[Rfam]
SAM (S-adenosyl methionine) riboswitch aptamer: a 114-nucleotide sequence from Streptomyces sp. NP160.
It scores 95 bits against the family's covariance model.
Lineage of the source: Bacteria > Actinomycetes > Kitasatosporales > Streptomycetaceae > Streptomyces.
SAM-IV is a mRNA element that regulates gene expression via direct sensing of S-adenosylmethionine (SAM or AdoMet). SAM-IV riboswitches share conserved nucleotide positions with the previously described SAM-I riboswitches sequence analysis and molecular recognition experiments suggest that SAM-I and SAM-IV riboswitches share similar ligand binding sites, but have different scaffolds.
RNA sequence: GGUCAUGAGUGGCAGCGACAAGCCCUGGCUCGCUGUCCAGCAACCCCCCUCCGCGGCGGGGUGCUCCAGGUGAGGACCGGGCAGGACGCAGCCGCGAUCCUGUCAGCGCGAGGU
Numbered sequence: 001g002g003u004c005a006u007g008a009g010u011g012g013c014a015g016c017g018a019c020a021a022g023c024c025c026u027g028g029c030u031c032g033c034u035g036u037c038c039a040g041c042a043a044c045c046c047c048c049c050u051c052c053g054c055g056g057c058g059g060g061g062u063g064c065u066c067c068a069g070g071u072g073a074g075g076a077c078c079g080g081g082c083a084g085g086a087c088g089c090a091g092c093c094g095c096g097a098u099c100c101u102g103u104c105a106g107c108g109c110g111a112g113g114u
Stems, first nucleotide, its partner, number of pairs: 001078004009038001011037006021030002039065003044061003048056002081103006087096003